The record is a 447-nucleotide sequence from Cyanobacteria bacterium FACHB-DQ100, which matches "Bacterial RNase P class A" in Rfam. The organism belongs to Cyanobacteriota, within Bacteria. By type it is a ribozyme.
RNA sequence: AGAGUCAGCGAGGCGGUUGCGGAUUCAGCACGAAUCUGAGGAAAGUCCGGACUCCCGAAAACCCAAACUUGCUGGGUAACGCCCAGUGCGCGUGAGCGUGAGGAAAGUGCCACAGAAAAAUACCGCCGGAGAAAGGUGGGGAUCGGGCAUAAGAUGUCAAAAGCGUCGUAUGCCCCACUCGCCGCUCCGGUAAGGGUGCAAAGGUGCGGUAAGAGCGCACCAGCAGUAUCGAGAGGUACUGGCUCGGUAAACCCCGGUGGGGAGCAAGGUCGGACGAAACAAGGGUUGGGUUUUUUCCUGUUUCGGUAGUUCACUUCACUUUCAAUGAAGGUUGAGUGAGCGAGAACCGCUUGAGGUUGGAGGUAACUUCAAUCCCAGAUAGAUAACUGCCCUCACCUUGCAAAAUGCAGGGUGAGAACAGAAUCCGGCUUAUGUCUAACUCUUCUC
Numbered sequence: 001a002g003a004g005u006c007a008g009c010g011a012g013g014c015g016g017u018u019g020c021g022g023a024u025u026c027a028g029c030a031c032g033a034a035u036c037u038g039a040g041g042a043a044a045g046u047c048c049g050g051a052c053u054c055c056c057g058a059a060a061a062c063c064c065a066a067a068c069u070u071g072c073u074g075g076g077u078a079a080c081g082c083c084c085a086g087u088g089c090g091c092g093u094g095a096g097c098g099u100g101a102g103g104a105a106a107g108u109g110c111c112a113c114a115g116a117a118a119a120a121u122a123c124c125g126c127c128g129g130a131g132a133a134a135g136g137u138g139g140g141g142a143u144c145g146g147g148c149a150u151a152a153g154a155u156g157u158c159a160a161a162a163g164c165g166u167c168g169u170a171u172g173c174c175c176c177a178c179u180c181g182c183c184g185c186u187c188c189g190g191u192a193a194g195g196g197u198g199c200a201a202a203g204g205u206g207c208g209g210u211a212a213g214a215g216c217g218c219a220c221c222a223g224c225a226g227u228a229u230c231g232a233g234a235g236g237u238a239c240u241g242g243c244u245c246g247g248u249a250a251a252c253c254c255c256g257g258u259g260g261g262g263a264g265c266a267a268g269g270u271c272g273g274a275c276g277a278a279a280c281a282a283g284g285g286u287u288g289g290g291u292u293u294u295u296u297c298c299u300g301u302u303u304c305g306g307u308a309g310u311u312c313a314c315u316u317c318a319c320u321u322u323c324a325a326u327g328a329a330g331g332u333u334g335a336g337u338g339a340g341c342g343a344g345a346a347c348c349g350c351u352u353g354a355g356g357u358u359g360g361a362g363g364u365a366a367c368u369u370c371a372a373u374c375c376c377a378g379a380u381a382g383a384u385a386a387c388u389g390c391c392c393u394c395a396c397c398u399u400g401c402a403a404a405a406u407g408c409a410g411g412g413u414g415a416g417a418a419c420a421g422a423a424u425c426c427g428g429c430u431u432a433u434g435u436c437u438a439a440c441u442c443u444u445c446u447c
Base pairs, nucleotide, nucleotide: 001443002442003441004440005439007437008436011433012391013390014389015388016387017386018385020038021037022036023035024034025033026032043431044430045429047428048427049426050425051424052264053263054262055261067258068257070256071255072086073085074084075083076082087101088099089098090097091096102254103253107252108251109248110247111246123195124194125191126190127189128188129187130186131185203221204220205219206218207217208216223243224241225240226239227238228237229236230235268348269347270346314330315329316328317327318326355374356373357372358371359370360369361368362367